[Rfam]
RNA sequence: CGUGUGGUGUCUGGACUACAGGAUCAGAUAGCGACACGGCCUACUGACUAGAGGU
Numbered sequence: 001c002g003u004g005u006g007g008u009g010u011c012u013g014g015a016c017u018a019c020a021g022g023a024u025c026a027g028a029u030a031g032c033g034a035c036a037c038g039g040c041c042u043a044c045u046g047a048c049u050a051g052a053g054g055u
Stems, first nucleotide, its partner, number of pairs: 001038005007032002011027004016022001
Dot-bracket structure: (((((.((..((((.(.....).))))...)).))))).................
The family of this 55-nucleotide sequence is "L31-Gammaproteobacteria ribosomal protein leader". By type it is a cis-regulatory leader. Clan: Ribosomal Protein L31 Leader clan. The sequence is in the family's curated seed alignment.